[Rfam]
RNA sequence: UGGCACCGUCGCGACUGGCGUUGAGGUGGGGAACCACCGGGGAGCGACCGCUUGACGGUAUUCGACCGCACGCCUGGGUCGAUGCG
Numbered sequence: 001u002g003g004c005a006c007c008g009u010c011g012c013g014a015c016u017g018g019c020g021u022u023g024a025g026g027u028g029g030g031g032a033a034c035c036a037c038c039g040g041g042g043a044g045c046g047a048c049c050g051c052u053u054g055a056c057g058g059u060a061u062u063c064g065a066c067c068g069c070a071c072g073c074c075u076g077g078g079u080c081g082a083u084g085c086g
Base pairs, nucleotide, nucleotide: 003053006050008048009047010046011045012044015041016040017074018073019072020071021070026037027036028035029034063081064080065079066078067077
The record is an 86-nucleotide RNA from Microbacterium sp. Leaf203, which matches "ZMP/ZTP riboswitch aptamer (pfl RNA motif)" in Rfam.